[Rfam]
RNA sequence: GCGAUGAGCUGAUUUGUGUAAGUCGAGAAACAUGCAAUACAUGUGAAUGUGAACACAUGGUUUUUCGCCACAAAUUUCGAAAAGACGUCUAUACUUUGUAUAGGCGUC
Numbered sequence: 001g002c003g004a005u006g007a008g009c010u011g012a013u014u015u016g017u018g019u020a021a022g023u024c025g026a027g028a029a030a031c032a033u034g035c036a037a038u039a040c041a042u043g044u045g046a047a048u049g050u051g052a053a054c055a056c057a058u059g060g061u062u063u064u065u066c067g068c069c070a071c072a073a074a075u076u077u078c079g080a081a082a083a084g085a086c087g088u089c090u091a092u093a094c095u096u097u098g099u100a101u102a103g104g105c106g107u108c
Base pairs, nucleotide, nucleotide: 014073015072016071017070018069024067025066026065027064028063029062030061031060040059041058043056044055045054084108085107086106087105088104089103090102091101092100
Shown here is a 108-nucleotide RNA sequence from Oceanobacillus piezotolerans, a member of the family "BsrF".
The source organism's lineage runs through Bacteria, Bacillati, Bacilli, Bacillaceae and Oceanobacillus.